[Rfam]
RNA sequence: AGGAUUACAAUCACUAAUGCCUAUAUAAUGCCGUAAUAUGGUCGGCGAGUUUCUACCCAGAGCCGUAAACUCUGGACUAUAAGCAAAUCGAUGAUUCCC
Numbered sequence: 001a002g003g004a005u006u007a008c009a010a011u012c013a014c015u016a017a018u019g020c021c022u023a024u025a026u027a028a029u030g031c032c033g034u035a036a037u038a039u040g041g042u043c044g045g046c047g048a049g050u051u052u053c054u055a056c057c058c059a060g061a062g063c064c065g066u067a068a069a070c071u072c073u074g075g076a077c078u079a080u081a082a083g084c085a086a087a088u089c090g091a092u093g094a095u096u097c098c099c
Stems, first nucleotide, its partner, number of pairs: 018085003022081004029047005057075006